The family of this 77-nucleotide RNA sequence from Sterrhoptilus dennistouni is "mir-196 microRNA precursor family". NCBI's taxonomy places the organism under Eukaryota, Craniata, Vertebrata, Sylvioidea, Sterrhoptilus. It scores 88 bits against the family's covariance model. Gene Ontology terms of the family: RISC complex and gene silencing by miRNA. The base pairs follow the family's consensus structure, which was predicted with PFOLD.
RNA sequence: UCCGUGGUUUAGGUAGUUUCAUGUUGUUGGGAUGGACAAUUUCGGACUCGGCAACAAGAAACUGCCUUAAUUACGUC
Numbered sequence: 001u002c003c004g005u006g007g008u009u010u011a012g013g014u015a016g017u018u019u020c021a022u023g024u025u026g027u028u029g030g031g032a033u034g035g036a037c038a039a040u041u042u043c044g045g046a047c048u049c050g051g052c053a054a055c056a057a058g059a060a061a062c063u064g065c066c067u068u069a070a071u072u073a074c075g076u077c
Stems, first nucleotide, its partner, number of pairs: 003075007011067009022056010
Dot-bracket structure: ..(((((((.(((((((((..((((((((((...............))))))))))..))))))))).)))))))..